Source information
Shown here is a 129-nucleotide sequence from Cnephaeus nilssonii, a member of the family "Small nucleolar RNA SNORA42/SNORA80 family". Taxonomically the source falls in Cnephaeus (Eukaryota, Opisthokonta, Craniata, Sarcopterygii). Rfam describes the family as follows. The members of this family belong to the H/ACA class of snoRNAs that guide the sites of modification of uridines to pseudouridines. Human ACA42 (SNORA42) was cloned from HeLa cells by immunoprecipitation with anti-GAR1 antibody. Its is predicted to guide the pseudouridylation of residues U109 and U572 of 18S rRNA. ACA42 shares the same host gene with ACA26, ACA46, ACA50. It scores 86 bits against the family's covariance model. Its family is annotated with nucleolus and RNA processing in the Gene Ontology.
RNA sequence: GCACUGGCUUGGAUCUGUGGCAGGCCCGCCCACUGGUCUCUCACAGUGCCCCAGGCCAGAGCAAUCUGUGGCCUUGAACCAUUGUCUAGCCUCUGCCCAUUGGCAGGCAUGGAAGUGGGUUGCAGAGUG
Numbered sequence: 001g002c003a004c005u006g007g008c009u010u011g012g013a014u015c016u017g018u019g020g021c022a023g024g025c026c027c028g029c030c031c032a033c034u035g036g037u038c039u040c041u042c043a044c045a046g047u048g049c050c051c052c053a054g055g056c057c058a059g060a061g062c063a064a065u066c067u068g069u070g071g072c073c074u075u076g077a078a079c080c081a082u083u084g085u086c087u088a089g090c091c092u093c094u095g096c097c098c099a100u101u102g103g104c105a106g107g108c109a110u111g112g113a114a115g116u117g118g119g120u121u122g123c124a125g126a127g128u129g
Stems, first nucleotide, its partner, number of pairs: 001056002006050003015046006022039005069122006080112001085107002089104003